RNA sequence: GGCGAUAAACGGCGUGUGGAAUAAGCGUUGCGGACCCGGGGGCAGUGCCCGGCGUCUCCACCAGUUUUGGCCCAGGCCUCGGCCUGUGGCUCGCAUGGGGACGAAACAGGCUCGACGCGCGCGGUAAAGACCCGUCUUUUGCCCGGCAUUGUACCACCGUCAUCGGGCUAUAUCACAAGUGCCAACGAUAACAGCCGCGAGGCUGUGGCGCUCGCUGCCUAA
Dot-bracket structure: (((((........(.((........(((.(((...(((((.......)))))(((((((.....................................)))))))............))))))........)).).....)))))(((..........)))...............................................................

A member of the RNA family "permuted transfer-messenger RNA" from Teichococcus coralli, 222 nucleotides long. Pairs were carried over by alignment from the consensus structure, which is taken from published work. Rfam classes the family as a non-coding RNA gene.